[Rfam]
RNA sequence: UGAGACUAACCCGUAGAUCCGAACUUGCGGUCGGACCAAUCACACAGGCUCGAGUCUGCGGGCCUGUCUCGG
Numbered sequence: 001u002g003a004g005a006c007u008a009a010c011c012c013g014u015a016g017a018u019c020c021g022a023a024c025u026u027g028c029g030g031u032c033g034g035a036c037c038a039a040u041c042a043c044a045c046a047g048g049c050u051c052g053a054g055u056c057u058g059c060g061g062g063c064c065u066g067u068c069u070c071g072g
Stems, first nucleotide, its partner, number of pairs: 002070005010062003015057004020052003024048004029043001
Dot-bracket structure: .(((((...(((..((((.(((.((((.(.............).)))).))).))))..)))...)))))..
The record is a 72-nucleotide RNA from Scyliorhinus torazame, which matches "mir-10 microRNA precursor family" in Rfam.
Rfam links the family to the GO terms RISC complex and miRNA-mediated post-transcriptional gene silencing.
The match comes from Rfam's covariance-model search (52 bits).
Pairs were carried over by alignment from the consensus structure, which was predicted with PFOLD.